[Rfam]
Background: This 178-nucleotide RNA sequence belongs to the Rfam family "malK-I RNA". Pairs were carried over by alignment from the consensus structure, which is taken from published work. The sequence is in the family's curated seed alignment. Rfam classes the family as a cis-regulatory element.
RNA sequence: UCAAGCCUUCCGACCCUACUCCAUUUUCAUAGGGCGGAGGAGCGGUCAAAAAGGAGGAACGCCCGCCGGGCCGGCGGUGCGGCAGUGUGGAGACCUGCCGUAACGUCCGCAGAGUGACGCUCUCUGCGGGCAAGAGGGUAUUUGCGGAGGCAUUGCCCUUACGGCCCUGAACAUGGCA
Numbered sequence: 001u002c003a004a005g006c007c008u009u010c011c012g013a014c015c016c017u018a019c020u021c022c023a024u025u026u027u028c029a030u031a032g033g034g035c036g037g038a039g040g041a042g043c044g045g046u047c048a049a050a051a052a053g054g055a056g057g058a059a060c061g062c063c064c065g066c067c068g069g070g071c072c073g074g075c076g077g078u079g080c081g082g083c084a085g086u087g088u089g090g091a092g093a094c095c096u097g098c099c100g101u102a103a104c105g106u107c108c109g110c111a112g113a114g115u116g117a118c119g120c121u122c123u124c125u126g127c128g129g130g131c132a133a134g135a136g137g138g139u140a141u142u143u144g145c146g147g148a149g150g151c152a153u154u155g156c157c158c159u160u161a162c163g164g165c166c167c168u169g170a171a172c173a174u175g176g177c178a
Stems, first nucleotide, its partner, number of pairs: 007040006014034005063077004068167006078102008087094002105131009134160007143152003